[Rfam]
RNA sequence: CUCCCAAAUCUCCUGUUGAAGUGUAAUCCCCACCUCCAGCAUUGGGGAUUACAUUUCAACAUGAGAUUUGGAUGAGA
Number, nucleotide and partner (000 for none) at each position: 001c076002u075003c074004c071005c070006a069007a068008a067009u066010c065011u064012c063013c000014u061015g060016u059017u058018g057019a056020a055021g054022u053023g052024u051025a050026a049027u048028c047029c046030c045031c044032a000033c000034c000035u000036c000037c000038a000039g000040c000041a000042u000043u000044g031045g030046g029047g028048a027049u026050u025051a024052c023053a022054u021055u020056u019057c018058a017059a016060c015061a014062u000063g012064a011065g010066a009067u008068u007069u006070g005071g004072a000073u000074g003075a002076g001077a000